[Rfam]
RNA sequence: UGGGAUACAAUGAUGACCGCAUAGUUCAGCAGAUUUUCUGUGAAGAGCAAACAGCAUUGUCUUUCGCUCCUAGCUGAAGUAUCAUC
Numbered sequence: 001u002g003g004g005a006u007a008c009a010a011u012g013a014u015g016a017c018c019g020c021a022u023a024g025u026u027c028a029g030c031a032g033a034u035u036u037u038c039u040g041u042g043a044a045g046a047g048c049a050a051a052c053a054g055c056a057u058u059g060u061c062u063u064u065c066g067c068u069c070c071u072a073g074c075u076g077a078a079g080u081a082u083c084a085u086c
Stems, first nucleotide, its partner, number of pairs: 004083005

About this RNA
Shown here is an 86-nucleotide sequence from Albula glossodonta, a member of the family "Small nucleolar RNA snR60/Z15/Z230/Z193/J17". The family is grouped with related families in Rfam's "SNORD77 clan". The source organism's lineage runs through Eukaryota, Opisthokonta, Actinopteri, Albuliformes and Albula. Rfam links the family to the GO terms nucleolus and RNA processing.